[Rfam]
RNA sequence: CCGUCUCUCAGGUUCUAGCACGGCCCUCGGAAUGGCUAGAACUUUUUAAGGCGUCACGGCAACGUGACGCCUUUUUUUU
Numbered sequence: 001c002c003g004u005c006u007c008u009c010a011g012g013u014u015c016u017a018g019c020a021c022g023g024c025c026c027u028c029g030g031a032a033u034g035g036c037u038a039g040a041a042c043u044u045u046u047u048a049a050g051g052c053g054u055c056a057c058g059g060c061a062a063c064g065u066g067a068c069g070c071c072u073u074u075u076u077u078u079u
Base pairs, nucleotide, nucleotide: 010044011043012042013041014040015039016038017037018036019035024030025029049072050071051070052069053068054067055066056065057064058063